Rfam assigns this 102-nucleotide RNA sequence from Oceanobacillus piezotolerans to the family "Purine riboswitch aptamer". The organism belongs to Oceanobacillus, within Bacteria.

RNA sequence: CAAACAAAAGAAUACGAUUUUCAUAUAAUCGCGGGAAUAUGGCCUGCAAGUUUCUACCGGUUUACCGUAAAUAAACCGACUAUGAAAAUAAGCGCUGGGAAG
Number, nucleotide and partner (000 for none) at each position: 001c000002a000003a000004a000005c000006a000007a000008a000009a000010g000011a000012a000013u000014a000015c000016g000017a000018u088019u087020u086021u085022c084023a083024u082025a081026u000027a000028a000029u049030c000031g047032c046033g045034g044035g043036a000037a000038u000039a000040u000041g000042g000043c035044c034045u033046g032047c031048a000049a029050g000051u000052u000053u000054c000055u000056a000057c000058c078059g077060g076061u075062u074063u073064a072065c000066c000067g000068u000069a000070a000071a000072u064073a063074a062075a061076c060077c059078g058079a000080c000081u025082a024083u023084g022085a021086a020087a019088a018089u000090a000091a000092g000093c000094g000095c000096u000097g000098g000099g000100a000101a000102g000
The match comes from Rfam's covariance-model search (89 bits).